[Rfam]
RNA sequence: AGAGCAUCAGUGAUGUUACAUCCUACUUUAAUCAUCCUUGCACUUUGAGCUGCGCGGUGAAGAAACCAUGGGGGAAUUGUAUUCUGAGAUGCUC
Numbered sequence: 001a002g003a004g005c006a007u008c009a010g011u012g013a014u015g016u017u018a019c020a021u022c023c024u025a026c027u028u029u030a031a032u033c034a035u036c037c038u039u040g041c042a043c044u045u046u047g048a049g050c051u052g053c054g055c056g057g058u059g060a061a062g063a064a065a066c067c068a069u070g071g072g073g074g075a076a077u078u079g080u081a082u083u084c085u086g087a088g089a090u091g092c093u094c
Stems, first nucleotide, its partner, number of pairs: 002094007